[Rfam]
RNA: Streptococcus sRNA SpR18
RNA sequence: AUUACAAGCUAUAGAGAGAAUAAAAAAUGGCUACUGGUACUCAAAUGGUACUGGAAGUAAAAAAGAAUAAACUAAAUAAUAGUUCCAAGUGGUUUACAUGAGGACAAAAAAUUAGACCAUAGCUUAAGUGUUA
Numbered sequence: 001a002u003u004a005c006a007a008g009c010u011a012u013a014g015a016g017a018g019a020a021u022a023a024a025a026a027a028u029g030g031c032u033a034c035u036g037g038u039a040c041u042c043a044a045a046u047g048g049u050a051c052u053g054g055a056a057g058u059a060a061a062a063a064a065g066a067a068u069a070a071a072c073u074a075a076a077u078a079a080u081a082g083u084u085c086c087a088a089g090u091g092g093u094u095u096a097c098a099u100g101a102g103g104a105c106a107a108a109a110a111a112u113u114a115g116a117c118c119a120u121a122g123c124u125u126a127a128g129u130g131u132u133a
Base pairs, nucleotide, nucleotide: 007032008031009030010029011028012027038126039125045120046119047118048117053068082105083104085103086102089099090098091097